[Rfam]
RNA: PrrF RNA
Organism: Pseudomonas panipatensis
RNA sequence: UUGACUCACAAAUGAUAAUAGUUAUUAUUAGCGCAACUGGUCGCGAGGCCAGCCGGUAAGCUGAGAGCGCCAAUGCAGUCGGACUCUUCAGGUUAUCUCCUCAUCAGGCUAAUCACGGUUUCGACCCGGCACCUCGCCGGGUCUUUUUUUG
Numbered sequence: 001u002u003g004a005c006u007c008a009c010a011a012a013u014g015a016u017a018a019u020a021g022u023u024a025u026u027a028u029u030a031g032c033g034c035a036a037c038u039g040g041u042c043g044c045g046a047g048g049c050c051a052g053c054c055g056g057u058a059a060g061c062u063g064a065g066a067g068c069g070c071c072a073a074u075g076c077a078g079u080c081g082g083a084c085u086c087u088u089c090a091g092g093u094u095a096u097c098u099c100c101u102c103a104u105c106a107g108g109c110u111a112a113u114c115a116c117g118g119u120u121u122c123g124a125c126c127c128g129g130c131a132c133c134u135c136g137c138c139g140g141g142u143c144u145u146u147u148u149u150u151g
Stems, first nucleotide, its partner, number of pairs: 034055001037052006061091003064087004070081001099108003123143008